[Rfam]
RNA sequence: CGCUCAUCCAGAGGGGCAGAGGGAAACGGCCCGAUGAAGCCCCGGCAACCACUGUGAUGGACAUGUCUCGUCAAACCUGAUUUUCCGCGCUCGUCAGCAGCGCAUGGUCGAGCCCGCCAUCGCAGAGAGGUGCCACUUCCGUCCUCGGCGCACAGUGACCGGGGGAAGAUGAGGA
Numbered sequence: 001c002g003c004u005c006a007u008c009c010a011g012a013g014g015g016g017c018a019g020a021g022g023g024a025a026a027c028g029g030c031c032c033g034a035u036g037a038a039g040c041c042c043c044g045g046c047a048a049c050c051a052c053u054g055u056g057a058u059g060g061a062c063a064u065g066u067c068u069c070g071u072c073a074a075a076c077c078u079g080a081u082u083u084u085c086c087g088c089g090c091u092c093g094u095c096a097g098c099a100g101c102g103c104a105u106g107g108u109c110g111a112g113c114c115c116g117c118c119a120u121c122g123c124a125g126a127g128a129g130g131u132g133c134c135a136c137u138u139c140c141g142u143c144c145u146c147g148g149c150g151c152a153c154a155g156u157g158a159c160c161g162g163g164g165g166a167a168g169a170u171g172a173g174g175a
Base pairs, nucleotide, nucleotide: 003173004172005171006170007169008168013043014042015041016040017039021032022031023030026142027141028140029139044134045133046132047131049130050129052125053124054123055122056121057120058119059118060117138167143164144163145162146161147160148159
RNA: SAM riboswitch aptamer (S box leader)
Organism: Frankineae bacterium MT45